RNA sequence: ACCUUAACUAUUAAAAGUUUCGUUUUGGUCCUUUAACUUACUUUUUGGUCCCUUAACUCAUCCUCUGUCAACCACUUUGGUCCUUUAUGUUAGGAUGAAUGUAUUAGAGUUAAGGGACCAAAAUGAAACCAAAAAAUAAGUUAAGGGACCAAAACGAAACCAAAAAGUAAGUUAAAGGACCAAAACGAAACUUUUAAUAGUUAAGGGACCAAAAUGAAACCAAAAAAUAAGUUAUGGGACCGAAACGAAACUUUUAAUAGUUAAGGAA
Numbered sequence: 001a002c003c004u005u006a007a008c009u010a011u012u013a014a015a016a017g018u019u020u021c022g023u024u025u026u027g028g029u030c031c032u033u034u035a036a037c038u039u040a041c042u043u044u045u046u047g048g049u050c051c052c053u054u055a056a057c058u059c060a061u062c063c064u065c066u067g068u069c070a071a072c073c074a075c076u077u078u079g080g081u082c083c084u085u086u087a088u089g090u091u092a093g094g095a096u097g098a099a100u101g102u103a104u105u106a107g108a109g110u111u112a113a114g115g116g117a118c119c120a121a122a123a124u125g126a127a128a129c130c131a132a133a134a135a136a137u138a139a140g141u142u143a144a145g146g147g148a149c150c151a152a153a154a155c156g157a158a159a160c161c162a163a164a165a166a167g168u169a170a171g172u173u174a175a176a177g178g179a180c181c182a183a184a185a186c187g188a189a190a191c192u193u194u195u196a197a198u199a200g201u202u203a204a205g206g207g208a209c210c211a212a213a214a215u216g217a218a219a220c221c222a223a224a225a226a227a228u229a230a231g232u233u234a235u236g237g238g239a240c241c242g243a244a245a246c247g248a249a250a251c252u253u254u255u256a257a258u259a260g261u262u263a264a265g266g267a268a
Stems, first nucleotide, its partner, number of pairs: 002266007023245003027241003031237002034234007042226002045223005
Shown here is a 268-nucleotide sequence from Medicago truncatula, a member of the family "MIR2655 microRNA precursor family". Rfam links the family to the GO terms RISC complex and miRNA-mediated post-transcriptional gene silencing.